[Rfam]
RNA sequence: AGCUGUAAUGGCUCAACGGAAGAAAUGACCUCAAUCUUUCUCUCCACUCCUGCUGUUGGCAACAACCCAACCGUCGGUGCCCGGUUCGAAUCCCGUGGUGGCCACCCACUCGCACAGGUAACUUGCGAUCGCUGCGCGUGGCCUUGAGACUGCUUGGACACCGCUUCAGCCGAGCAAUCGGGCAGAGCGACCGAGCCCAUGGGAUGGCGACUCCGGACUACAUUGAUGUGUUGGUGGGGUGUUGGGGAAGAGUUAUGGGGCUGUGACUUUCUUU
Numbered sequence: 001a002g003c004u005g006u007a008a009u010g011g012c013u014c015a016a017c018g019g020a021a022g023a024a025a026u027g028a029c030c031u032c033a034a035u036c037u038u039u040c041u042c043u044c045c046a047c048u049c050c051u052g053c054u055g056u057u058g059g060c061a062a063c064a065a066c067c068c069a070a071c072c073g074u075c076g077g078u079g080c081c082c083g084g085u086u087c088g089a090a091u092c093c094c095g096u097g098g099u100g101g102c103c104a105c106c107c108a109c110u111c112g113c114a115c116a117g118g119u120a121a122c123u124u125g126c127g128a129u130c131g132c133u134g135c136g137c138g139u140g141g142c143c144u145u146g147a148g149a150c151u152g153c154u155u156g157g158a159c160a161c162c163g164c165u166u167c168a169g170c171c172g173a174g175c176a177a178u179c180g181g182g183c184a185g186a187g188c189g190a191c192c193g194a195g196c197c198c199a200u201g202g203g204a205u206g207g208c209g210a211c212u213c214c215g216g217a218c219u220a221c222a223u224u225g226a227u228g229u230g231u232u233g234g235u236g237g238g239g240u241g242u243u244g245g246g247g248a249a250g251a252g253u254u255a256u257g258g259g260g261c262u263g264u265g266a267c268u269u270u271c272u273u274u
Stems, first nucleotide, its partner, number of pairs: 001013003018271005029260005034254001036252001037249006045241006054064004068233003072228008081216004086210003090205009100143001102141004107136001109134001110128005116123002144148001152196006162189005171180003